The record is a 267-nucleotide RNA sequence from Bacillus sp. PK3_68, which matches "BsrG" in Rfam. The family has 6 seed sequences and 614 matches in Rfam 15.1. The family's consensus secondary structure was predicted with WAR. Gene Ontology terms of the family: autolysis and toxin activity.
[Rfam]
RNA sequence: CAAUAGAAUAGGUUUCUCAAGGGUGGUCGGCGCACUCCUCCAAGUGUUUAAUUUACAAGGAGGGAGGUGUUGCCGUAUGACAGUCUAUGAGGCGUUAACUUUAAUGAUCUCGUUCGCGGGAUUGGUUGUGCUAAUUCUGUCAAACAAAAAAGACUAAAACCGCCCUUGAGCUUAGCGGACUCGGGCGGCUUUGGCCUGUGUAAGCGCUGAUCCCCUUAGAGGGAACCUGCUAUUGCAUGGCCGUUCUCAAUGUUACCAGCAUUGGGG
Numbered sequence: 001c002a003a004u005a006g007a008a009u010a011g012g013u014u015u016c017u018c019a020a021g022g023g024u025g026g027u028c029g030g031c032g033c034a035c036u037c038c039u040c041c042a043a044g045u046g047u048u049u050a051a052u053u054u055a056c057a058a059g060g061a062g063g064g065a066g067g068u069g070u071u072g073c074c075g076u077a078u079g080a081c082a083g084u085c086u087a088u089g090a091g092g093c094g095u096u097a098a099c100u101u102u103a104a105u106g107a108u109c110u111c112g113u114u115c116g117c118g119g120g121a122u123u124g125g126u127u128g129u130g131c132u133a134a135u136u137c138u139g140u141c142a143a144a145c146a147a148a149a150a151a152g153a154c155u156a157a158a159a160c161c162g163c164c165c166u167u168g169a170g171c172u173u174a175g176c177g178g179a180c181u182c183g184g185g186c187g188g189c190u191u192u193g194g195c196c197u198g199u200g201u202a203a204g205c206g207c208u209g210a211u212c213c214c215c216u217u218a219g220a221g222g223g224a225a226c227c228u229g230c231u232a233u234u235g236c237a238u239g240g241c242c243g244u245u246c247u248c249a250a251u252g253u254u255a256c257c258a259g260c261a262u263u264g265g266g267g
Stems, first nucleotide, its partner, number of pairs: 001235005009229003013225001014210002016170008025160001027158001032070003037067005079141005093106002118131001181203001183201001211224004245267010

It scores 69 bits against the family's covariance model. For this family Rfam cites "Identification of regulatory RNAs in Bacillus subtilis" (Irnov et al., Nucleic Acids Res, 2010).